A member of the RNA family "Bacterial large signal recognition particle RNA" from Bacillus sp. FJAT-49711, 266 nucleotides long. It is annotated as a non-coding RNA gene.
[Rfam]
RNA sequence: CCGUGCUAGAUGGGGAUGUAGCGGAGCCCUGUAACCCGCAAUCCGCUCCAGCGGGAUUGAAUUCCUUCCCGAGGCUGUUGUACUGUAGGGUCUGCCUCAAGUAAGUGGUGUUGACAUCUGGGUCCUGCGCAAUGGGAAUCUACGAACCAUGUCAGGUCCGGAAGGAAGCAGCAUUAAGUGGAACCUCUCAUGUGCCGCAGGACAGCCUGGAUUGAGCUAACUGCUUGAGUAACGCUUAUGGUACACAGUCAGAGGAAGGUGUGCGG
Numbered sequence: 001c002c003g004u005g006c007u008a009g010a011u012g013g014g015g016a017u018g019u020a021g022c023g024g025a026g027c028c029c030u031g032u033a034a035c036c037c038g039c040a041a042u043c044c045g046c047u048c049c050a051g052c053g054g055g056a057u058u059g060a061a062u063u064c065c066u067u068c069c070c071g072a073g074g075c076u077g078u079u080g081u082a083c084u085g086u087a088g089g090g091u092c093u094g095c096c097u098c099a100a101g102u103a104a105g106u107g108g109u110g111u112u113g114a115c116a117u118c119u120g121g122g123u124c125c126u127g128c129g130c131a132a133u134g135g136g137a138a139u140c141u142a143c144g145a146a147c148c149a150u151g152u153c154a155g156g157u158c159c160g161g162a163a164g165g166a167a168g169c170a171g172c173a174u175u176a177a178g179u180g181g182a183a184c185c186u187c188u189c190a191u192g193u194g195c196c197g198c199a200g201g202a203c204a205g206c207c208u209g210g211a212u213u214g215a216g217c218u219a220a221c222u223g224c225u226u227g228a229g230u231a232a233c234g235c236u237u238a239u240g241g242u243a244c245a246c247a248g249u250c251a252g253a254g255g256a257a258g259g260u261g262u263g264c265g266g
Stems, first nucleotide, its partner, number of pairs: 001266006009058003012030004017025001019023001035055005064259006073250005080244010093231002097228006105221002107218003116212008124201006130192002133190005139182005149174004157166003